[Rfam]
RNA sequence: AUGCAUCCGUUUGACAGACCUGGAGCAGUUCCUGUCUGCUGCUAAGGUUUCCACUACAGAUGCAAGAAAAAAGUGUCCUCGCGCUUUCUGUCUGUCUCAUUAUGGCAGUCAAGAUUGAAUGGGGGAGUACAGGG
Numbered sequence: 001a002u003g004c005a006u007c008c009g010u011u012u013g014a015c016a017g018a019c020c021u022g023g024a025g026c027a028g029u030u031c032c033u034g035u036c037u038g039c040u041g042c043u044a045a046g047g048u049u050u051c052c053a054c055u056a057c058a059g060a061u062g063c064a065a066g067a068a069a070a071a072a073g074u075g076u077c078c079u080c081g082c083g084c085u086u087u088c089u090g091u092c093u094g095u096c097u098c099a100u101u102a103u104g105g106c107a108g109u110c111a112a113g114a115u116u117g118a119a120u121g122g123g124g125g126a127g128u129a130c131a132g133g134g
Stems, first nucleotide, its partner, number of pairs: 002064006009057001012053002016050005024040005076126005084117001087114003092108005